[Rfam]
RNA sequence: AUUCACUUGAAGCCUAACAAUGGAGCGGAGGAACCAAAAACCUUCUCUGGGGCUUAUCUUCUUGGGAAAAUAGAAGAAGGGCACCUCUCAGCCCUAGCCCGUCAGCUAACUUCGCAGGCAAUGGGAGGGGACUG
Numbered sequence: 001a002u003u004c005a006c007u008u009g010a011a012g013c014c015u016a017a018c019a020a021u022g023g024a025g026c027g028g029a030g031g032a033a034c035c036a037a038a039a040a041c042c043u044u045c046u047c048u049g050g051g052g053c054u055u056a057u058c059u060u061c062u063u064g065g066g067a068a069a070a071u072a073g074a075a076g077a078a079g080g081g082c083a084c085c086u087c088u089c090a091g092c093c094c095u096a097g098c099c100c101g102u103c104a105g106c107u108a109a110c111u112u113c114g115c116a117g118g119c120a121a122u123g124g125g126a127g128g129g130g131a132c133u134g
Stems, first nucleotide, its partner, number of pairs: 006118002013023002025115006035049002050100003058076004079094004

Source information: Rfam assigns this 134-nucleotide sequence from Microcoleus sp. FACHB-68 to the family "c-di-AMP riboswitch aptamer (ydaO/yuaA leader)". Rfam describes the family as follows. This family represents a conserved RNA structure found upstream of the ydaO and yuaA genes in Bacillus subtilis and related genes in other bacteria.